mir-9/mir-79 microRNA precursor family: a 77-nucleotide RNA sequence. Rfam links the family to the GO terms RISC complex and miRNA-mediated post-transcriptional gene silencing. The match comes from Rfam's covariance-model search (59 bits). The family's consensus secondary structure was predicted with RNAalifold.
RNA sequence: AUGGUCUUUGCUUUGGUAAUCUAGCUUUAUGAACAUUGACAUUAAUCAUAGAGCUGUAUUACCAAAGUAAAGGCAAA
Numbered sequence: 001a002u003g004g005u006c007u008u009u010g011c012u013u014u015g016g017u018a019a020u021c022u023a024g025c026u027u028u029a030u031g032a033a034c035a036u037u038g039a040c041a042u043u044a045a046u047c048a049u050a051g052a053g054c055u056g057u058a059u060u061a062c063c064a065a066a067g068u069a070a071a072g073g074c075a076a077a
Stems, first nucleotide, its partner, number of pairs: 002076001004074002007071014022056005028050005